[Rfam]
RNA sequence: GGUCAAGAGCGCCAGCGACAAGCCCCGGCUCGCUGGCCGGCAACCCUCCUCCUGCGGCGGGGUGCCCCGGGUGAAGACCGGGCCGCCACCCGUCCGGGCGCGGCAAGCGCGGGCU
Numbered sequence: 001g002g003u004c005a006a007g008a009g010c011g012c013c014a015g016c017g018a019c020a021a022g023c024c025c026c027g028g029c030u031c032g033c034u035g036g037c038c039g040g041c042a043a044c045c046c047u048c049c050u051c052c053u054g055c056g057g058c059g060g061g062g063u064g065c066c067c068c069g070g071g072u073g074a075a076g077a078c079c080g081g082g083c084c085g086c087c088a089c090c091c092g093u094c095c096g097g098g099c100g101c102g103g104c105a106a107g108c109g110c111g112g113g114c115u
Stems, first nucleotide, its partner, number of pairs: 001079004009038001011037006021030002039066003044062003048057002082104004087100001089098003
Description:
A member of the RNA family "SAM (S-adenosyl methionine) riboswitch aptamer" from Pseudokineococcus lusitanus, 115 nucleotides long. The source organism's lineage runs through Bacteria, Bacillati, Kineosporiales, Kineosporiaceae and Pseudokineococcus. Rfam's curators write: SAM-IV is a mRNA element that regulates gene expression via direct sensing of S-adenosylmethionine (SAM or AdoMet). SAM-IV riboswitches share conserved nucleotide positions with the previously described SAM-I riboswitches sequence analysis and molecular recognition experiments suggest that SAM-I and SAM-IV riboswitches share similar ligand binding sites, but have different scaffolds. A search with the family's covariance model found it, with a score of 100 bits.